[Rfam]
RNA sequence: GUGUCUUAAACUUAUGAGUAAGGAAAAUAACGAUUCAGGGUCAUGUCCAAAUCCUCACUGCUAAUGUGAGAUGAAUUUUUGAGCAGGUAAAGAUUGCCCCUAGGGUGACCUGCCUGCUUUGCAGGAUGCCUGUGAGUCUCAGUCUUGCUG
Numbered sequence: 001g002u003g004u005c006u007u008a009a010a011c012u013u014a015u016g017a018g019u020a021a022g023g024a025a026a027a028u029a030a031c032g033a034u035u036c037a038g039g040g041u042c043a044u045g046u047c048c049a050a051a052u053c054c055u056c057a058c059u060g061c062u063a064a065u066g067u068g069a070g071a072u073g074a075a076u077u078u079u080u081g082a083g084c085a086g087g088u089a090a091a092g093a094u095u096g097c098c099c100c101u102a103g104g105g106u107g108a109c110c111u112g113c114c115u116g117c118u119u120u121g122c123a124g125g126a127u128g129c130c131u132g133u134g135a136g137u138c139u140c141a142g143u144c145u146u147g148c149u150g
Stems, first nucleotide, its partner, number of pairs: 004023005032053004038047002054070005084150003091145006100134001103131005109125005
RNA: U12 minor spliceosomal RNA
Organism: Carlito syrichta